The family of this 260-nucleotide RNA from Ignelater luminosus is "RNase MRP". Its Rfam clan is "RNaseP clan".
RNA sequence: UAGUUUUCCUAAGCCUAACUAUCAGGGUUACUAACAGAGAUUGUAGUAUCUCAUUAUUCCCUGAGGAAGGUCCCCGGAUCUUUGGUAGAAAGUACUGCCAGAGGACUUCUGGAAAGCCACAAGCGCCGCCAUAGAAGGGUAGGAAAUUUAAAUGACCUGUUAUAUGGUAUGCUUGGGGUGUUGGUCAGAGCACAGUCAUGUUAGGGUCAUUGUCCUUAACUGGACAAAGAUAACAGAACGGGGCCCAUUCUAGGAAAACC
Numbered sequence: 001u002a003g004u005u006u007u008c009c010u011a012a013g014c015c016u017a018a019c020u021a022u023c024a025g026g027g028u029u030a031c032u033a034a035c036a037g038a039g040a041u042u043g044u045a046g047u048a049u050c051u052c053a054u055u056a057u058u059c060c061c062u063g064a065g066g067a068a069g070g071u072c073c074c075c076g077g078a079u080c081u082u083u084g085g086u087a088g089a090a091a092g093u094a095c096u097g098c099c100a101g102a103g104g105a106c107u108u109c110u111g112g113a114a115a116g117c118c119a120c121a122a123g124c125g126c127c128g129c130c131a132u133a134g135a136a137g138g139g140u141a142g143g144a145a146a147u148u149u150a151a152a153u154g155a156c157c158u159g160u161u162a163u164a165u166g167g168u169a170u171g172c173u174u175g176g177g178g179u180g181u182u183g184g185u186c187a188g189a190g191c192a193c194a195g196u197c198a199u200g201u202u203a204g205g206g207u208c209a210u211u212g213u214c215c216u217u218a219a220c221u222g223g224a225c226a227a228a229g230a231u232a233a234c235a236g237a238a239c240g241g242g243g244c245c246c247a248u249u250c251u252a253g254g255a256a257a258a259c260c
Stems, first nucleotide, its partner, number of pairs: 003259009014205006022064006037052005069245002072243004084096004098112005115179001117177001120175006129167004136160001138158002146153002207230002210227006